Guanidine-II riboswitch aptamer (mini-ykkC): a 49-nucleotide sequence from Columbina picui. NCBI's taxonomy places the organism under Eukaryota, Craniata, Archelosauria, Columbiformes, Columbina. Rfam links the family to the GO term regulation of gene expression. Simpler in structure and has fewer highly conserved nucleotide positions than the ykkC-yxkD leader. Despite this each of its two stem-loop structures directly bind free guanidine. Therefore, mini-ykkC RNA motif represents a distinct class of guanidine-sensing RNAs. Its crystal structure was also determined.
RNA sequence: CAAUGGGGACGACCCCGCACUGUGACCAGUGACAAUGGGGACGACCCCG
Numbered sequence: 001c002a003a004u005g006g007g008g009a010c011g012a013c014c015c016c017g018c019a020c021u022g023u024g025a026c027c028a029g030u031g032a033c034a035a036u037g038g039g040g041a042c043g044a045c046c047c048c049g
Stems, first nucleotide, its partner, number of pairs: 001022002004019001005016004036049005